[Rfam]
RNA sequence: UGCCUAACCCUCGUAGCUUGCUGUGAGGUAUGGCACAAAAACCGGUCAGGGGCAGAAAGCCCAUCGUUUGGGAGCACCCUGACCGGUCAUAUGCCGAAAGGCAUAUGGGUGGCGUAAGCCAU
Numbered sequence: 001u002g003c004c005u006a007a008c009c010c011u012c013g014u015a016g017c018u019u020g021c022u023g024u025g026a027g028g029u030a031u032g033g034c035a036c037a038a039a040a041a042c043c044g045g046u047c048a049g050g051g052g053c054a055g056a057a058a059g060c061c062c063a064u065c066g067u068u069u070g071g072g073a074g075c076a077c078c079c080u081g082a083c084c085g086g087u088c089a090u091a092u093g094c095c096g097a098a099a100g101g102c103a104u105a106u107g108g109g110u111g112g113c114g115u116a117a118g119c120c121a122u
Stems, first nucleotide, its partner, number of pairs: 001035004009028007042086010060072004088107008109122005

This 122-nucleotide RNA belongs to the Rfam family "LOOT RNA".
The family's RNA type in Rfam is small RNA.